RNA sequence: ACACCAUAAAGAGAAGGCGAGAGACAAGCUCUAUGACCCUUCAGCAACCUGCAUAAUGUAAGGUGCUAAUGCUUGAUAGAUGGCUCUAUAUGAAAU
Numbered sequence: 001a002c003a004c005c006a007u008a009a010a011g012a013g014a015a016g017g018c019g020a021g022a023g024a025c026a027a028g029c030u031c032u033a034u035g036a037c038c039c040u041u042c043a044g045c046a047a048c049c050u051g052c053a054u055a056a057u058g059u060a061a062g063g064u065g066c067u068a069a070u071g072c073u074u075g076a077u078a079g080a081u082g083g084c085u086c087u088a089u090a091u092g093a094a095a096u
Base pairs, nucleotide, nucleotide: 013042014041015040016039017038021031022030023029025075026074027073028072043067044066045065046064048063049062050060051059052058053057071096077092078091080089081088
The record is a 96-nucleotide RNA from Acholeplasma oculi, which matches "SAM riboswitch aptamer (S box leader)" in Rfam.
A search with the family's covariance model found it, with a score of 52 bits.
The family's consensus secondary structure is taken from published work.